[Rfam]
RNA sequence: UUAAUUUAAUAGUCUUUCACUCAUAUAAUCGCGGGGAUAUGGCCUGCAAGUUUCUACCGAGUUACCGUAAAUAACUUGACUAUGAGUGAGCAAUGGAUAGAG
Dot-bracket structure: .................((((((((...(.(((((.......))))).)........(((((((.......)))))))..))))))))..............
Numbered sequence: 001u002u003a004a005u006u007u008a009a010u011a012g013u014c015u016u017u018c019a020c021u022c023a024u025a026u027a028a029u030c031g032c033g034g035g036g037a038u039a040u041g042g043c044c045u046g047c048a049a050g051u052u053u054c055u056a057c058c059g060a061g062u063u064a065c066c067g068u069a070a071a072u073a074a075c076u077u078g079a080c081u082a083u084g085a086g087u088g089a090g091c092a093a094u095g096g097a098u099a100g101a102g
Stems, first nucleotide, its partner, number of pairs: 018088008029049001031047005058078007